[Rfam]
RNA sequence: CCGAGUACCAAGGGGUGCCUUUUUAGGCUGAGAUGCGAAAGCGAACCCUUUUUACCUGAUCCGGUUAAUACUGGCGUAGGGAUGGUAAAGUCUCGCAUA
Numbered sequence: 001c002c003g004a005g006u007a008c009c010a011a012g013g014g015g016u017g018c019c020u021u022u023u024u025a026g027g028c029u030g031a032g033a034u035g036c037g038a039a040a041g042c043g044a045a046c047c048c049u050u051u052u053u054a055c056c057u058g059a060u061c062c063g064g065u066u067a068a069u070a071c072u073g074g075c076g077u078a079g080g081g082a083u084g085g086u087a088a089a090g091u092c093u094c095g096c097a098u099a
Base pairs, nucleotide, nucleotide: 006087007086008085009084010083011049012048013047014046016043017028018027019026020025035042036041055080056079057078058077061074062073063072064071
The family of this 99-nucleotide sequence from Idiomarina sp. MD25a is "TPP riboswitch aptamer (THI element)". The family's consensus secondary structure is taken from published work. It scores 74 bits against the family's covariance model.